A member of the RNA family "Streptomyces-metH RNA" from Streptomyces mashuensis, 124 nucleotides long. The match comes from Rfam's covariance-model search (77 bits).
RNA sequence: UGGUCCGGACCAUGAGACGCCCCUGCGCCGGGGGGCGGUCCUGGGGCUAGGCUGGCCGCGUGCGCCGUCCGCAACAGGGCGGCGCAAAGCCGACAGCCGUCGCACACCCGGGAGCUGCCCCAUG
Numbered sequence: 001u002g003g004u005c006c007g008g009a010c011c012a013u014g015a016g017a018c019g020c021c022c023c024u025g026c027g028c029c030g031g032g033g034g035g036c037g038g039u040c041c042u043g044g045g046g047c048u049a050g051g052c053u054g055g056c057c058g059c060g061u062g063c064g065c066c067g068u069c070c071g072c073a074a075c076a077g078g079g080c081g082g083c084g085c086a087a088a089g090c091c092g093a094c095a096g097c098c099g100u101c102g103c104a105c106a107c108c109c110g111g112g113a114g115c116u117g118c119c120c121c122a123u124g
Stems, first nucleotide, its partner, number of pairs: 061086004066081004089103002092101003